[Rfam]
RNA: c-di-GMP-I riboswitch aptamer
Organism: Lachnospiraceae bacterium G11
RNA sequence: GUUAAUAUUCGGCAAAGCAGGCGAAAGCCUGUGACGCAAAGCUAUAGGGACUUUCACAUGUCAGCCAGUUGCACUU
Numbered sequence: 001g002u003u004a005a006u007a008u009u010c011g012g013c014a015a016a017g018c019a020g021g022c023g024a025a026a027g028c029c030u031g032u033g034a035c036g037c038a039a040a041g042c043u044a045u046a047g048g049g050a051c052u053u054u055c056a057c058a059u060g061u062c063a064g065c066c067a068g069u070u071g072c073a074c075u076u
Stems, first nucleotide, its partner, number of pairs: 012037002017032006040070004047066002049062003
Dot-bracket structure: ...........((...((((((....))))))...))..((((...(((((........)))..))))))......